[Rfam]
RNA sequence: AUUUAAACCCGAUUGAAGUAGAAAUACUUUUACCAGUCCCCUUUAGGGGAUUUAGGGGUAAAAGAUUGCAACGAAAAGCGGGACUGAAC
Numbered sequence: 001a002u003u004u005a006a007a008c009c010c011g012a013u014u015g016a017a018g019u020a021g022a023a024a025u026a027c028u029u030u031u032a033c034c035a036g037u038c039c040c041c042u043u044u045a046g047g048g049g050a051u052u053u054a055g056g057g058g059u060a061a062a063a064g065a066u067u068g069c070a071a072c073g074a075a076a077a078g079c080g081g082g083a084c085u086g087a088a089c
Stems, first nucleotide, its partner, number of pairs: 009081003013077002018072002023067003029062005038057002